[Rfam]
RNA: SAM riboswitch aptamer (S box leader)
RNA sequence: UUCUUAUCCAGAAAGACCGAGGGAAUUGACCCUAUGACGUCUUGGCAACCUGCCCGCUAACCCGGAGUAAGGUGCCACAUUCAACCUCCGCCGAAAGCGAAGGAUAGAUAAGUA
Numbered sequence: 001u002u003c004u005u006a007u008c009c010a011g012a013a014a015g016a017c018c019g020a021g022g023g024a025a026u027u028g029a030c031c032c033u034a035u036g037a038c039g040u041c042u043u044g045g046c047a048a049c050c051u052g053c054c055c056g057c058u059a060a061c062c063c064g065g066a067g068u069a070a071g072g073u074g075c076c077a078c079a080u081u082c083a084a085c086c087u088c089c090g091c092c093g094a095a096a097g098c099g100a101a102g103g104a105u106a107g108a109u110a111a112g113u114a
Base pairs, nucleotide, nucleotide: 001114003112004111005110006109007108008107013043014042015041016040017039021032022031023030026084027083028082029081044076045075046074047073049072050071054065055064056063080106085103086102087101089099090098